[Rfam]
RNA sequence: GCAAGCCGAAGGGCAGCUACCGGUUUCUAUAGAUUUAAUGUCUGUAGUUAAACUGAGGAAACUCCACCCAUCAUGCAGAGCCGUGGUGCCGUAGCAUCAGCUGAGAGGCUGGACCCUGGAGCAGAAACGACACGUCUCCUGGUGGAUGAUAAUGAAGCUUCACCCUCAAGGAGCAGACUGACAUCAGGAGGACCGGUGAAACGGCCAUUCCACGGGAUGCAAGGACAAAUGCUGCCUGUGAUUACUGUAGGAGGCAGAGGUAGUCCGCCCAGAUGAAUGCUGCCGAACAGAAGGUGGGUUACUCUCGGCAUGC
Numbered sequence: 001g002c003a004a005g006c007c008g009a010a011g012g013g014c015a016g017c018u019a020c021c022g023g024u025u026u027c028u029a030u031a032g033a034u035u036u037a038a039u040g041u042c043u044g045u046a047g048u049u050a051a052a053c054u055g056a057g058g059a060a061a062c063u064c065c066a067c068c069c070a071u072c073a074u075g076c077a078g079a080g081c082c083g084u085g086g087u088g089c090c091g092u093a094g095c096a097u098c099a100g101c102u103g104a105g106a107g108g109c110u111g112g113a114c115c116c117u118g119g120a121g122c123a124g125a126a127a128c129g130a131c132a133c134g135u136c137u138c139c140u141g142g143u144g145g146a147u148g149a150u151a152a153u154g155a156a157g158c159u160u161c162a163c164c165c166u167c168a169a170g171g172a173g174c175a176g177a178c179u180g181a182c183a184u185c186a187g188g189a190g191g192a193c194c195g196g197u198g199a200a201a202c203g204g205c206c207a208u209u210c211c212a213c214g215g216g217a218u219g220c221a222a223g224g225a226c227a228a229a230u231g232c233u234g235c236c237u238g239u240g241a242u243u244a245c246u247g248u249a250g251g252a253g254g255c256a257g258a259g260g261u262a263g264u265c266c267g268c269c270c271a272g273a274u275g276a277a278u279g280c281u282g283c284c285g286a287a288c289a290g291a292a293g294g295u296g297g298g299u300u301a302c303u304c305u306c307g308g309c310a311u312g313c
Stems, first nucleotide, its partner, number of pairs: 001313003005309005010303002012284006021055005060300003064297005069219004074249005081215005086097004098111005112210002117207003133195002136190008157174005223266004232257005

Archaeal RNase P: a 313-nucleotide RNA from uncultured archaeon ER-E. The literature on the family includes a 1998 paper in Annu Rev Biochem by Frank and Pace, "Ribonuclease P: unity and diversity in a tRNA processing ribozyme". It is annotated as a ribozyme. From the family's description: Ribonuclease P (RNase P) is a ubiquitous endoribonuclease, found in archaea, bacteria and eukarya as well as chloroplasts and mitochondria. Its best characterised activity is the generation of mature 5'-ends of tRNAs by cleaving the 5'-leader elements of precursor-tRNAs. Cellular RNase Ps are ribonucleoproteins. RNA from bacterial RNase Ps retains its catalytic activity in the absence of the protein subunit, i.e. it is a ribozyme.